This 539-nucleotide part of an RNA from Helicobacter bilis belongs to the Rfam family "Bacterial large subunit ribosomal RNA".
Pairs were carried over by alignment from the consensus structure, which is taken from published work.
The sequence is in the family's curated seed alignment.
Its family is annotated with ribosome and structural constituent of ribosome in the Gene Ontology.
[Rfam]
RNA sequence: UUUUAAGGGCAGAUGGUGGAUGCCUUGGGUGAUAGAGGCGAUGAAGGACGUACUAAGCUGCGAUAAGCUAUGGGGAGCUGCUAAGAAGCUUUGAUCCAUAGAUUUCCGAAUGGGGCAACCCAAUACAUAGAGAUAUGUAUUACCUUUAAUGGAGCGAACCUAGCGAAGUGAAACAUCUCAGUAGCUAGAGGAAAAGAAAUCAAAUGAGAUUCUCCUAGUAGCGGCGAGCGAACGGGGAAAAGGGCAAACCAGUAGCUUGCUACUGGGGUUGAGGACUGCAAUAUCCACUUGAAUAAUGUAGCAGAAGUGUUUGGAAAAACAUAUCAUAGAGGGUGAUAGUCCCGUAUGCGAAAUAUUAUUCAUAGGUAGCAGGAUCCAGAGUAGGCCAGGACACGUGAAAUCCGGGCUGAAGCCGGGGAGACCACUCUCCAACCCUAAAUACUACUAUCACACCGAUAGCGAACAAGUACCGUGAGGGAAAGGUGAAAAGAACCGCAGUGAGCGGAGUGAAAUAGAACCUGAAACCAUCUGCCUACAAU
Dot-bracket structure: ......((((((((((.....(((..(((((((((((((......((((((........))).....(((((((..(((.......))).....)))))))...)))....(((....)))(((((((......))))))).((......)).))...((((((.....((....))......))))).).........((....))..((((((.....((.....))....)))))..((((....(((((((....)))))))......((.((((........((((((((((((.(((...(((((......)))))..(...).(((.......)))...)))...)))))))))).))...))))...))......((((.(((.........))).))))......(((((......)))))..))))..)..)).))))))).))...............((....))....)).........((((.....)))).............).....)))))))))).....